RNA sequence: CUUAGAAAUAUCAUUGAGUGCAGCGUUGAUGAAAAUGUCGAAUUUCUGCAGAUACUGAUGCUGCAUUAUUAUUCAUUUCAGACAGUUUUCAUCUACGCUGCACUCAAUCAUGUUUCAG
Numbered sequence: 001c002u003u004a005g006a007a008a009u010a011u012c013a014u015u016g017a018g019u020g021c022a023g024c025g026u027u028g029a030u031g032a033a034a035a036u037g038u039c040g041a042a043u044u045u046c047u048g049c050a051g052a053u054a055c056u057g058a059u060g061c062u063g064c065a066u067u068a069u070u071a072u073u074c075a076u077u078u079c080a081g082a083c084a085g086u087u088u089u090c091a092u093c094u095a096c097g098c099u100g101c102a103c104u105c106a107a108u109c110a111u112g113u114u115u116c117a118g
Stems, first nucleotide, its partner, number of pairs: 006115006013108014028093001030091003
Notes:
The family of this 118-nucleotide sequence from Nicotiana sylvestris is "MIR397 microRNA precursor family". Pairs were carried over by alignment from the consensus structure, which was predicted with WAR. A search with the family's covariance model found it, with a score of 65 bits. A reference for the family is Mica et al. (2009), "High throughput approaches reveal splicing of primary microRNA transcripts and tissue specific expression of mature microRNAs in Vitis vinifera", BMC Genomics.